[Rfam]
This 66-nucleotide RNA sequence from Lentibacillus cibarius belongs to the Rfam family "Bacillaceae-1 RNA". Rfam 15.1 lists 5,721 matches to the family in 247 species. The source organism's lineage runs through Bacteria, Bacillati, Bacillota, Bacilli and Lentibacillus. Rfam classes the family as a small RNA.
RNA sequence: GGGUAAGGUUGGCAGGCUAAGUUCGUCACGUCCUGUGACAACGCCUGCACUAGCACGUCCUGUGCG
Numbered sequence: 001g002g003g004u005a006a007g008g009u010u011g012g013c014a015g016g017c018u019a020a021g022u023u024c025g026u027c028a029c030g031u032c033c034u035g036u037g038a039c040a041a042c043g044c045c046u047g048c049a050c051u052a053g054c055a056c057g058u059c060c061u062g063u064g065c066g
Stems, first nucleotide, its partner, number of pairs: 012048006025039005053065004